The record is a 132-nucleotide sequence from Urocitellus parryii, which matches "Small nucleolar RNA SNORA51" in Rfam.
NCBI's taxonomy places the organism under Eukaryota, Eumetazoa, Teleostomi, Theria, Urocitellus.
The family's consensus secondary structure was predicted with PFOLD.
ACA51 is a member of the H/ACA class of snoRNA that guide the sites of modification of uridines to pseudouridines.
The match comes from Rfam's covariance-model search (109 bits).
[Rfam]
RNA sequence: GGCUUUCUGGUACUUACCACAGGCUGUAUUCUUACACCGACUGUAUACAAAGUGGAAGAAGAGUAAACCUGUCCUCUAUAUACCUCAGCCCAGGCCUUGUACCUGGCCUAUAUUAUGAAUGGGGGGAUGUUG
Numbered sequence: 001g002g003c004u005u006u007c008u009g010g011u012a013c014u015u016a017c018c019a020c021a022g023g024c025u026g027u028a029u030u031c032u033u034a035c036a037c038c039g040a041c042u043g044u045a046u047a048c049a050a051a052g053u054g055g056a057a058g059a060a061g062a063g064u065a066a067a068c069c070u071g072u073c074c075u076c077u078a079u080a081u082a083c084c085u086c087a088g089c090c091c092a093g094g095c096c097u098u099g100u101a102c103c104u105g106g107c108c109u110a111u112a113u114u115a116u117g118a119a120u121g122g123g124g125g126g127a128u129g130u131u132g
Base pairs, nucleotide, nucleotide: 003058004057005056006055007054020043021042022041026037027036029034072124073123074122075121077119087109088108090106091105092104093103094102